[Rfam]
RNA sequence: ACACCCUUAACACCUGGCUGUGAUAUGCUAAUUAUGUACCCUGGAAAAUCCCAAUUAGCAUAUCACAGCCAGGUGUUAAGGGUGUGA
Numbered sequence: 001a002c003a004c005c006c007u008u009a010a011c012a013c014c015u016g017g018c019u020g021u022g023a024u025a026u027g028c029u030a031a032u033u034a035u036g037u038a039c040c041c042u043g044g045a046a047a048a049u050c051c052c053a054a055u056u057a058g059c060a061u062a063u064c065a066c067a068g069c070c071a072g073g074u075g076u077u078a079a080g081g082g083u084g085u086g087a
Stems, first nucleotide, its partner, number of pairs: 005081009015071009026062002

A member of the RNA family "mir-2 microRNA precursor family" from Hymenochirus boettgeri, 87 nucleotides long. The family has 56 seed sequences and 918 matches in Rfam 15.1. Its family is annotated with miRNA-mediated post-transcriptional gene silencing and RISC complex in the Gene Ontology.